[Rfam]
RNA sequence: CUUCUUUGCAUCCUCGCGACUAAUGACAACCCUAACCGACGCCGGGUAAAGCCUCUCAUUAGCCGCGCGAACCUCUGCAACGAAGAAUAUGUACAACAACAAUACAUUAUACCCGUUAUCUUUCAAAAUACUGCUGUGUUGGUAAUUUCAGCUCAAUUUUGUCUCAACGAGAUGCAGACAAGCAGGAUUACCAGAACGCCAGGCAGCGUCUUGCGGGUACACUUUCUUAUAAAUUGCGGUCGUCCAGUGGAAAAAAGGGGCCAUAAAGGCCCCUCUUU
Numbered sequence: 001c002u003u004c005u006u007u008g009c010a011u012c013c014u015c016g017c018g019a020c021u022a023a024u025g026a027c028a029a030c031c032c033u034a035a036c037c038g039a040c041g042c043c044g045g046g047u048a049a050a051g052c053c054u055c056u057c058a059u060u061a062g063c064c065g066c067g068c069g070a071a072c073c074u075c076u077g078c079a080a081c082g083a084a085g086a087a088u089a090u091g092u093a094c095a096a097c098a099a100c101a102a103u104a105c106a107u108u109a110u111a112c113c114c115g116u117u118a119u120c121u122u123u124c125a126a127a128a129u130a131c132u133g134c135u136g137u138g139u140u141g142g143u144a145a146u147u148u149c150a151g152c153u154c155a156a157u158u159u160u161g162u163c164u165c166a167a168c169g170a171g172a173u174g175c176a177g178a179c180a181a182g183c184a185g186g187a188u189u190a191c192c193a194g195a196a197c198g199c200c201a202g203g204c205a206g207c208g209u210c211u212u213g214c215g216g217g218u219a220c221a222c223u224u225u226c227u228u229a230u231a232a233a234u235u236g237c238g239g240u241c242g243u244c245c246a247g248u249g250g251a252a253a254a255a256a257g258g259g260g261c262c263a264u265a266a267a268g269g270c271c272c273c274u275c276u277u278u
Stems, first nucleotide, its partner, number of pairs: 001085004008078003015069004020062007091230002257273006